[Rfam]
RNA: Nuclear RNase P
Organism: Vitrella brassicaformis
RNA sequence: GUUGUGUUGAUUUUGAGCGUGCCCGUGUCCGUGCGUUGAGCGAAAGCUCAAGUGUUUUAUGCGGGGGGGAAGGUCUGAGAGGCCGCUGUUUGACAGAGAUGCAGUCGCACCAGCCUUUGAUGCGACGGCCGCCCACCAGAAAUGGCACCCCACACAUACACACACACGUGUUGUGUGUGGGGCUGAAAGGGGCUGGCUGGCCUGUCAUCUGCAGUGAGUCAAAUGCUCGAAACGCUGCGUGGCCCUCUCUGUCGGAGGGUCAGCAGCGAACUCAAUUCAGACUAGUCCUGCACAAC
Numbered sequence: 001g002u003u004g005u006g007u008u009g010a011u012u013u014u015g016a017g018c019g020u021g022c023c024c025g026u027g028u029c030c031g032u033g034c035g036u037u038g039a040g041c042g043a044a045a046g047c048u049c050a051a052g053u054g055u056u057u058u059a060u061g062c063g064g065g066g067g068g069g070a071a072g073g074u075c076u077g078a079g080a081g082g083c084c085g086c087u088g089u090u091u092g093a094c095a096g097a098g099a100u101g102c103a104g105u106c107g108c109a110c111c112a113g114c115c116u117u118u119g120a121u122g123c124g125a126c127g128g129c130c131g132c133c134c135a136c137c138a139g140a141a142a143u144g145g146c147a148c149c150c151c152a153c154a155c156a157u158a159c160a161c162a163c164a165c166a167c168g169u170g171u172u173g174u175g176u177g178u179g180g181g182g183c184u185g186a187a188a189g190g191g192g193c194u195g196g197c198u199g200g201c202c203u204g205u206c207a208u209c210u211g212c213a214g215u216g217a218g219u220c221a222a223a224u225g226c227u228c229g230a231a232a233c234g235c236u237g238c239g240u241g242g243c244c245c246u247c248u249c250u251g252u253c254g255g256a257g258g259g260u261c262a263g264c265a266g267c268g269a270a271c272u273c274a275a276u277u278c279a280g281a282c283u284a285g286u287c288c289u290g291c292a293c294a295a296c
Base pairs, nucleotide, nucleotide: 001296002295003294004293007290009288012231013230014229015228016227017226018225022065023064024063025062036051037050038049039048040047041046075280076279077278078277079276081202082201083200084199091103092102094101095100105125106124107123108122109121128197129196130195131194133192134191148181149180233268234267235266236265237264238263